Rfam assigns this 114-nucleotide sequence from Calorimonas adulescens to the family "FMN riboswitch aptamer (RFN element)".
The base pairs follow the family's consensus structure, which is taken from published work.

Nucleotides: 114
Base pairs, nucleotide, nucleotide: 006109007108008107009106010105017029018028019027031094032093033084034083035048036047037046038045043082044081051060052059053058064080065079066078067077068076086097087096088095
Number, partner (000 for none) and nucleotide at each position: 001000a002000a003000a004000u005000a006109c007108c008107u009106u010105c011000a012000g013000g014000g015000c016000a017029g018028g019027g020000u021000g022000a023000a024000a025000u026000u027019c028018c029017c030000g031094a032093c033084c034083g035048g036047c037046g038045g039000u040000a041000a042000a043082g044081c045038c046037c047036g048035c049000g050000a051060g052059c053058c054000g055000u056000a057000a058053g059052g060051c061000a062000g063000a064080u065079c066078c067077g068076u069000u070000g071000u072000a073000a074000c075000u076068a077067c078066g079065g080064g081044g082043c083034c084033g085000a086097c087096a088095g089000u090000a091000u092000a093032g094031u095088c096087u097086g098000g099000a100000u101000g102000g103000a104000a105010g106009a107008a108007g109006g110000g111000u112000a113000g114000a